[Rfam]
RNA sequence: CUUGAGCGAGCCGAGAUACAGCGGCCGGUCAUCGGGCCGGUCCUGCCCGUAGGUGGCCAGGAGGGCCUGGGCCUC
Numbered sequence: 001c002u003u004g005a006g007c008g009a010g011c012c013g014a015g016a017u018a019c020a021g022c023g024g025c026c027g028g029u030c031a032u033c034g035g036g037c038c039g040g041u042c043c044u045g046c047c048c049g050u051a052g053g054u055g056g057c058c059a060g061g062a063g064g065g066c067c068u069g070g071g072c073c074u075c
Base pairs, nucleotide, nucleotide: 015025017023032070033069038065043060044059045058047056048055049054